[Rfam]
RNA sequence: AUCCAAAGCCAAACACACUACUUCUUUUCAAACUUUUCCCAAGUUUCCAACCAAAUCUAUUCAUCAUGAACCCCUGCGCCUGCAACUGCUGCUCCGGCAACUGCAACUCCUGCUCUUGCAACAGCUGCAAGGUAUGUCCAUCACC
Numbered sequence: 001a002u003c004c005a006a007a008g009c010c011a012a013a014c015a016c017a018c019u020a021c022u023u024c025u026u027u028u029c030a031a032a033c034u035u036u037u038c039c040c041a042a043g044u045u046u047c048c049a050a051c052c053a054a055a056u057c058u059a060u061u062c063a064u065c066a067u068g069a070a071c072c073c074c075u076g077c078g079c080c081u082g083c084a085a086c087u088g089c090u091g092c093u094c095c096g097g098c099a100a101c102u103g104c105a106a107c108u109c110c111u112g113c114u115c116u117u118g119c120a121a122c123a124g125c126u127g128c129a130a131g132g133u134a135u136g137u138c139c140a141u142c143a144c145c
Stems, first nucleotide, its partner, number of pairs: 075099003082092003103128003112119002
This 145-nucleotide sequence from Penicillium brevicompactum belongs to the Rfam family "A. fumigatus sRNA Afu_254". The base pairs follow the family's consensus structure, which was predicted with WAR. NCBI's taxonomy places the organism under Eukaryota, Dikarya, Eurotiomycetidae, Eurotiales, Penicillium.